[Rfam]
RNA sequence: GGAUCCAUAGGGAGGGAUGCCAAUCCAGCCUUAGGAAAGAAAUCUGUCACAAGAAGCUUGGAGAAUGGCAACCCUCCUAAUGACUUA
Dot-bracket structure: .((..(((.((((.((.(((((.((...((......(((...(.((...)).)...))))).)).))))).)).)))).)))..)).
RNA: mir-9014 microRNA precursor family
Organism: Equus asinus